[Rfam]
The record is a 108-nucleotide sequence from Lentimicrobium saccharophilum, which matches "Bacteroidales small SRP" in Rfam.
RNA sequence: UUGCAGCGGGUAAGUCUUAUACGACCAGCUCCCAUUGAACUCCCCCAGGUCAGGAAUGAAGCAAGGGUAAAUGGUUGUAGCGGUGCGAUGUAAGUAGCUUACCCUUUU
Numbered sequence: 001u002u003g004c005a006g007c008g009g010g011u012a013a014g015u016c017u018u019a020u021a022c023g024a025c026c027a028g029c030u031c032c033c034a035u036u037g038a039a040c041u042c043c044c045c046c047a048g049g050u051c052a053g054g055a056a057u058g059a060a061g062c063a064a065g066g067g068u069a070a071a072u073g074g075u076u077g078u079a080g081c082g083g084u085g086c087g088a089u090g091u092a093a094g095u096a097g098c099u100u101a102c103c104c105u106u107u108u
Base pairs, nucleotide, nucleotide: 008104009103010102011101012100013099014098015097017093018092019091020090021089022087023086024084025083
Its Rfam clan is "SRP clan". For this family Rfam cites "A high-resolution transcriptome map identifies small RNA regulation of metabolism in the gut microbe Bacteroides thetaiotaomicron" (Ryan et al., Nat Commun, 2020). Pairs were carried over by alignment from the consensus structure, which is taken from published work.